[Rfam]
RNA sequence: UUAGCCGCGAGGCUUGGUCUGGAGGAAGCCGGACGCAAAUUUGCGAGCUGAUGAACAAGAACAUCAUAUGAGGCGUAGGCUAGAGGUGAGUUGGCACAAGACGACGAAACCACGUGAUCUAAUGGCCACCGUAAAUGAUGCAGCAGUGCA
Numbered sequence: 001u002u003a004g005c006c007g008c009g010a011g012g013c014u015u016g017g018u019c020u021g022g023a024g025g026a027a028g029c030c031g032g033a034c035g036c037a038a039a040u041u042u043g044c045g046a047g048c049u050g051a052u053g054a055a056c057a058a059g060a061a062c063a064u065c066a067u068a069u070g071a072g073g074c075g076u077a078g079g080c081u082a083g084a085g086g087u088g089a090g091u092u093g094g095c096a097c098a099a100g101a102c103g104a105c106g107a108a109a110c111c112a113c114g115u116g117a118u119c120u121a122a123u124g125g126c127c128a129c130c131g132u133a134a135a136u137g138a139u140g141c142a143g144c145a146g147u148g149c150a
Base pairs, nucleotide, nucleotide: 001016003014004013005012006011042150043149044148045147047144048143049142050141062140063139064138065137066136067135073132074131075130078127079126080125081124082123085111086110087109090105091104092103093102
Overview: This 150-nucleotide RNA sequence from Paraglaciecola sp. MB-3u-78 belongs to the Rfam family "Group II catalytic intron D1-D4-3". A search with the family's covariance model found it, with a score of 114 bits. The source organism's lineage runs through Bacteria, Gammaproteobacteria, Alteromonadales, Alteromonadaceae and Paraglaciecola.